[Rfam]
RNA sequence: CUUCAACGAGCCCAGCCACAAAGGCUGUUGGGGAUCGCGGCCCUUGCCGUACGUGGCGAGCAGCGCCUGCGCCUC
Numbered sequence: 001c002u003u004c005a006a007c008g009a010g011c012c013c014a015g016c017c018a019c020a021a022a023g024g025c026u027g028u029u030g031g032g033g034a035u036c037g038c039g040g041c042c043c044u045u046g047c048c049g050u051a052c053g054u055g056g057c058g059a060g061c062a063g064c065g066c067c068u069g070c071g072c073c074u075c
Base pairs, nucleotide, nucleotide: 014026015025016024017023032070038065039064043060044059045058047056048055049054

The family of this 75-nucleotide sequence is "ASpks TB sRNA". A reference for the family is Arnvig and Young (2009), "Identification of small RNAs in Mycobacterium tuberculosis", Mol Microbiol. The family's RNA type in Rfam is antisense RNA. The base pairs follow the family's consensus structure, which is taken from published work.